Rfam assigns this 357-nucleotide sequence from Jannaschia sp. CCS1 to the family "Alphaproteobacteria transfer-messenger RNA". For this family Rfam cites "Phylogenetic analysis of tmRNA secondary structure" (Williams and Bartel, RNA, 1996). Taxonomically the source falls in Jannaschia (Bacteria, Pseudomonadota, Alphaproteobacteria, Rhodobacterales). The base pairs follow the family's consensus structure, which is taken from published work.
RNA sequence: GACCUUGAAUCCAACGCCCGCCCCUCGUAUAUCUAGCGUGUUCCUUCGGGAGCUAUGGACAUAAACGCGCUCGUAAUAAGCGGAUCGGACCCGGGGGCGGUACCCGGCGACUCCACCAACACACCCUUCAUUUGGGGGAGGCUUGGGGUCGAAAUAGGAUCGACGAACGUCUAAAGGGGUUAGCUUUGUCCCGGUGAGUUACCACCGUUAUCGGUACACAUCGUACAGUUGCAAAUGACAACCGUGCUCCGGCAAUGGCUCUCGCAGCGUAAGCUGUCCUGAGUCGCCGACUUUAAGCCCUAGCGCCUAGCCGCGUUAGGCGGGGUUCGCAGGCACCUGGCAACAGAAGCCUGCACU
Number, nucleotide and partner (000 for none) at each position: 001g000002a000003c000004c000005u000006u000007g000008a000009a000010u000011c000012c000013a000014a000015c000016g000017c000018c000019c000020g000021c000022c000023c000024c000025u000026c000027g000028u000029a000030u000031a000032u000033c000034u000035a000036g000037c000038g000039u000040g053041u052042u051043c050044c049045u000046u000047c000048g000049g044050g043051a042052g041053c040054u000055a000056u000057g191058g190059a189060c188061a187062u000063a000064a000065a000066c000067g184068c183069g180070c179071u178072c177073g000074u000075a000076a000077u000078a000079a000080g000081c169082g168083g000084a000085u166086c165087g164088g000089a000090c000091c107092c106093g105094g104095g103096g000097g000098c000099g000100g000101u000102a000103c095104c094105c093106g092107g091108c151109g150110a149111c148112u147113c146114c145115a000116c000117c000118a000119a000120c000121a000122c000123a000124c000125c000126c000127u000128u000129c000130a000131u000132u000133u000134g000135g000136g000137g000138g000139a000140g000141g000142c000143u000144u000145g114146g113147g112148g111149u110150c109151g108152a000153a000154a000155u000156a000157g000158g000159a000160u000161c000162g000163a000164c087165g086166a085167a000168c082169g081170u000171c000172u000173a000174a000175a000176g000177g072178g071179g070180u069181u000182a000183g068184c067185u000186u000187u061188g060189u059190c058191c057192c207193g206194g205195u204196g000197a000198g217199u216200u000201a215202c214203c213204a195205c194206c193207g192208u000209u000210a000211u000212c000213g203214g202215u201216a199217c198218a000219c000220a000221u000222c000223g000224u000225a000226c000227a000228g000229u000230u000231g000232c000233a000234a000235a000236u000237g000238a000239c000240a000241a000242c000243c000244g000245u000246g000247c000248u000249c000250c000251g000252g000253c000254a000255a000256u000257g000258g000259c000260u000261c000262u000263c000264g000265c000266a000267g000268c000269g000270u000271a000272a000273g000274c000275u000276g000277u000278c000279c000280u000281g000282a000283g000284u000285c000286g000287c000288c000289g000290a000291c000292u000293u000294u000295a000296a000297g000298c000299c000300c000301u000302a000303g000304c000305g000306c000307c000308u000309a000310g000311c000312c000313g000314c000315g000316u000317u000318a000319g000320g000321c000322g000323g338324g337325g336326u335327u000328c000329g354330c353331a352332g351333g350334c349335a326336c325337c324338u323339g000340g000341c000342a000343a000344c000345a000346g000347a000348a000349g334350c333351c332352u331353g330354c329355a000356c000357u000